RNA sequence: UCCACAUCCAUAUGUGUAGGAUCUCAAAGGAUCACCAUUAAAUUUGGCACAGAUCUAUAGAAAAGUUAAGACAUAUGUGUGGGACUUGAUUUUUCUAAAGAUCUGUGUCAAAUUUAGUGGUAAUCCUUUGGGGUCCUACACACAUGGGUGUGGG
Numbered sequence: 001u002c003c004a005c006a007u008c009c010a011u012a013u014g015u016g017u018a019g020g021a022u023c024u025c026a027a028a029g030g031a032u033c034a035c036c037a038u039u040a041a042a043u044u045u046g047g048c049a050c051a052g053a054u055c056u057a058u059a060g061a062a063a064a065g066u067u068a069a070g071a072c073a074u075a076u077g078u079g080u081g082g083g084a085c086u087u088g089a090u091u092u093u094u095c096u097a098a099a100g101a102u103c104u105g106u107g108u109c110a111a112a113u114u115u116a117g118u119g120g121u122a123a124u125c126c127u128u129u130g131g132g133g134u135c136c137u138a139c140a141c142a143c144a145u146g147g148g149u150g151u152g153g154g
Stems, first nucleotide, its partner, number of pairs: 002153010013142001015140014030125003034121023058097011071080003

MIR8565 microRNA precursor family: a 154-nucleotide RNA sequence from Amborella trichopoda.
Pairs were carried over by alignment from the consensus structure, which was predicted with RNAalifold.
Gene Ontology terms of the family: RISC complex and miRNA-mediated post-transcriptional gene silencing.
It scores 142 bits against the family's covariance model.
The organism belongs to Amborella, within Eukaryota.